[Rfam]
Rfam assigns this 57-nucleotide sequence to the family "Glutamine-II riboswitch aptamer". On this family, see Huang et al., Nucleic Acids Res 2019: "Structure and ligand binding of the glutamine-II riboswitch".
RNA sequence: GGACGUUCACCUCUAUCUUGGAGGCGCAACCAACUGAUCCACGGAACGGGGGACAGU
Numbered sequence: 001g002g003a004c005g006u007u008c009a010c011c012u013c014u015a016u017c018u019u020g021g022a023g024g025c026g027c028a029a030c031c032a033a034c035u036g037a038u039c040c041a042c043g044g045a046a047c048g049g050g051g052g053a054c055a056g057u
Base pairs, nucleotide, nucleotide: 004048005047006046007045008044010024011023012022013021014020033057034056035055036054039051040050